RNA: c-di-GMP-I riboswitch aptamer
RNA sequence: ACACGAUUACGGCACACCCGCUUGAAAGACGGGGUCGCAAAGCCUCCGGUCUACCGCUCUCCCCUGCAGGCGAGCCACGAUAGCGGGGUUGCCGGC
Numbered sequence: 001a002c003a004c005g006a007u008u009a010c011g012g013c014a015c016a017c018c019c020g021c022u023u024g025a026a027a028g029a030c031g032g033g034g035u036c037g038c039a040a041a042g043c044c045u046c047c048g049g050u051c052u053a054c055c056g057c058u059c060u061c062c063c064c065u066g067c068a069g070g071c072g073a074g075c076c077a078c079g080a081u082a083g084c085g086g087g088g089u090u091g092c093c094g095g096c
Base pairs, nucleotide, nucleotide: 012038013037017033018032019031020030022029023028041090042089043088044087046086047085048084049081050080051079056075057074058073059072